[Rfam]
RNA sequence: GAGGCUCCGGUUCACGUCAUCGCGUCGCGGUGGCGACCCGGCGGCC
Numbered sequence: 001g002a003g004g005c006u007c008c009g010g011u012u013c014a015c016g017u018c019a020u021c022g023c024g025u026c027g028c029g030g031u032g033g034c035g036a037c038c039c040g041g042c043g044g045c046c
Stems, first nucleotide, its partner, number of pairs: 003046003007041004015035009
RNA: L31-Actinobacteria ribosomal protein leader